[Rfam]
RNA: Small nucleolar RNA Z103
Organism: Brassica napus
RNA sequence: AUGGAGGUGAUGACAAUUUCCCCAAAUGAUCGAAACUGAUUAUACUGAGCGAUUUUAUAUUUACUCUCAUCAGAGGAAAUCAAGCCUAUUUUCUGAUCCUU
Numbered sequence: 001a002u003g004g005a006g007g008u009g010a011u012g013a014c015a016a017u018u019u020c021c022c023c024a025a026a027u028g029a030u031c032g033a034a035a036c037u038g039a040u041u042a043u044a045c046u047g048a049g050c051g052a053u054u055u056u057a058u059a060u061u062u063a064c065u066c067u068c069a070u071c072a073g074a075g076g077a078a079a080u081c082a083a084g085c086c087u088a089u090u091u092u093c094u095g096a097u098c099c100u101u
Base pairs, nucleotide, nucleotide: 001101003099004098005097